The record is a 78-nucleotide RNA sequence from Streptomyces spongiae, which matches "ASpks TB sRNA" in Rfam.
Lineage of the source: Bacteria > Actinomycetota > Kitasatosporales > Streptomycetaceae > Streptomyces.
The family's consensus secondary structure is taken from published work.
[Rfam]
Nucleotides: 078
Base pairs, nucleotide, nucleotide: 014026015025016024017023033074034073035072041068046063047062050059051058052057
Number, partner (000 for none) and nucleotide at each position: 001000c002000u003000u004000g005000a006000u007000c008000g009000a010000c011000c012000c013000c014026a015025g016024c017023c018000a019000g020000a021000g022000c023017g024016g025015c026014u027000c028000a029000c030000c031000a032000u033074c034073g035072c036000c037000g038000u039000c040000g041068c042000g043000c044000g045000c046063c047062u048000g049000g050059c051058c052057g053000u054000a055000g056000g057052u058051g059050g060000c061000a062047a063046g064000g065000a066000g067000g068041g069000c070000c071000u072035g073034c074033g075000c076000u077000u078000c